[Rfam]
RNA sequence: CCGGACGCCCCAGUCGGGGUCCGGCCAACCGGGCGCCCGAUCGGUGUCUGGCGCUCCUGAUCACCAUGUUGCUCAUGUGGAGGAUAUGGCCAUGAGGA
Numbered sequence: 001c002c003g004g005a006c007g008c009c010c011c012a013g014u015c016g017g018g019g020u021c022c023g024g025c026c027a028a029c030c031g032g033g034c035g036c037c038c039g040a041u042c043g044g045u046g047u048c049u050g051g052c053g054c055u056c057c058u059g060a061u062c063a064c065c066a067u068g069u070u071g072c073u074c075a076u077g078u079g080g081a082g083g084a085u086a087u088g089g090c091c092a093u094g095a096g097g098a
Base pairs, nucleotide, nucleotide: 001024002023003022004021005020006019008018009017031056032055033054034053035052036051037050039048040047057096058095060093061092064089065088066087067086068085069084070083072082073081074080
About this RNA
Shown here is a 98-nucleotide RNA sequence from Rugositalea oryzae, a member of the family "Repression of heat shock gene expression (ROSE) element". This family represents a 5' UTR cis-regulatory element found in heat shock mRNAs and is known as the ROSE (repression of heat shock gene expression) element. The ROSE element is a negative regulator of heat shock gene expression. The secondary structure is thought to be regulated by temperature. This regulation blocks access to the ribosome binding site under normal conditions. By type it is an RNA thermoregulator. Taxonomically the source falls in Rugositalea (Bacteria, Pseudomonadota, Alphaproteobacteria, Nitrobacteraceae). A search with the family's covariance model found it, with a score of 56 bits.